[Rfam]
RNA sequence: AGAGGCCCUCCGUGGCCGGGGUGGAACGCUUACCUCGUCACUGUGGCGACAAAGCAAGCAUUCCACCAGGUCACUCACACUGCUCUC
Numbered sequence: 001a002g003a004g005g006c007c008c009u010c011c012g013u014g015g016c017c018g019g020g021g022u023g024g025a026a027c028g029c030u031u032a033c034c035u036c037g038u039c040a041c042u043g044u045g046g047c048g049a050c051a052a053a054g055c056a057a058g059c060a061u062u063c064c065a066c067c068a069g070g071u072c073a074c075u076c077a078c079a080c081u082g083c084u085c086u087c
Stems, first nucleotide, its partner, number of pairs: 004084003012074006020067007028059004033054001037050003041046001
Description: This 87-nucleotide sequence from Myotis brandtii belongs to the Rfam family "mir-9195 microRNA precursor family". A search with the family's covariance model found it, with a score of 91 bits. Rfam links the family to the GO terms miRNA-mediated post-transcriptional gene silencing and RISC complex. Taxonomically the source falls in Myotis (Eukaryota, Deuterostomia, Gnathostomata, Euteleostomi). Pairs were carried over by alignment from the consensus structure, which was predicted with RNAalifold.